Rfam assigns this 79-nucleotide sequence from Leptobrachium leishanense to the family "Small nucleolar RNA SNORD53/SNORD92". It scores 71 bits against the family's covariance model. Lineage of the source: Eukaryota > Eumetazoa > Chordata > Anura > Leptobrachium. The family is grouped with related families in Rfam's "SNORD52 clan". The pairing is the family consensus, mapped onto this sequence.
RNA sequence: UCGCGGUGAUGAUGCAGAGUGUGGUUUCAAUUCUCUCUGAUAAGGAAUGAAGACUCUUUUCUCUUGGCUGUCUGAGCGA
Numbered sequence: 001u002c003g004c005g006g007u008g009a010u011g012a013u014g015c016a017g018a019g020u021g022u023g024g025u026u027u028c029a030a031u032u033c034u035c036u037c038u039g040a041u042a043a044g045g046a047a048u049g050a051a052g053a054c055u056c057u058u059u060u061c062u063c064u065u066g067g068c069u070g071u072c073u074g075a076g077c078g079a
Stems, first nucleotide, its partner, number of pairs: 001079004